[Rfam]
RNA sequence: UGGGUCGGCCGGACGACCGCGUCGCGGGCGGCUCGCCGUCGCGCGCCGAGGAACGUCCGGGCUCCACAGGGCAGGGCGGUGGGUAACACCCACCCGGAGUGAUCCGCGAGACAGUGCCACAGAAAGCAGACCGCCGGGCCCGCGAGGGAUCCGGUAAGGGUGAAACGGUGGUGUAAGAGACCACCAGGGGUCGCGGUGACGCGAUCCGCUCGGUAAACCUCGUCCGGAGCAAGAUCAGACAGGGGAUGAUGAGGCGGCCCGCCGAAUCCCCGGGUAGAUCGCUAGAGCGGCAUGGUGACGUGUCGCCGAGAGAGAUGGUCGUCAAGGGGGCGUGAGCCCCUGAACAGAACCCGGCGUACAGGCCGGCCCAUUCG
Numbered sequence: 001u002g003g004g005u006c007g008g009c010c011g012g013a014c015g016a017c018c019g020c021g022u023c024g025c026g027g028g029c030g031g032c033u034c035g036c037c038g039u040c041g042c043g044c045g046c047c048g049a050g051g052a053a054c055g056u057c058c059g060g061g062c063u064c065c066a067c068a069g070g071g072c073a074g075g076g077c078g079g080u081g082g083g084u085a086a087c088a089c090c091c092a093c094c095c096g097g098a099g100u101g102a103u104c105c106g107c108g109a110g111a112c113a114g115u116g117c118c119a120c121a122g123a124a125a126g127c128a129g130a131c132c133g134c135c136g137g138g139c140c141c142g143c144g145a146g147g148g149a150u151c152c153g154g155u156a157a158g159g160g161u162g163a164a165a166c167g168g169u170g171g172u173g174u175a176a177g178a179g180a181c182c183a184c185c186a187g188g189g190g191u192c193g194c195g196g197u198g199a200c201g202c203g204a205u206c207c208g209c210u211c212g213g214u215a216a217a218c219c220u221c222g223u224c225c226g227g228a229g230c231a232a233g234a235u236c237a238g239a240c241a242g243g244g245g246a247u248g249a250u251g252a253g254g255c256g257g258c259c260c261g262c263c264g265a266a267u268c269c270c271c272g273g274g275u276a277g278a279u280c281g282c283u284a285g286a287g288c289g290g291c292a293u294g295g296u297g298a299c300g301u302g303u304c305g306c307c308g309a310g311a312g313a314g315a316u317g318g319u320c321g322u323c324a325a326g327g328g329g330g331c332g333u334g335a336g337c338c339c340c341u342g343a344a345c346a347g348a349a350c351c352c353g354g355c356g357u358a359c360a361g362g363c364c365g366g367c368c369c370a371u372u373c374g
Stems, first nucleotide, its partner, number of pairs: 001370010011359001012323007020048002023045004028040001053357003057354005062229004069260004074225005079093005094108001095106004109220002114218002116214003131159002133155006139148003167185006187209001188207008233280004242271006253263003287306008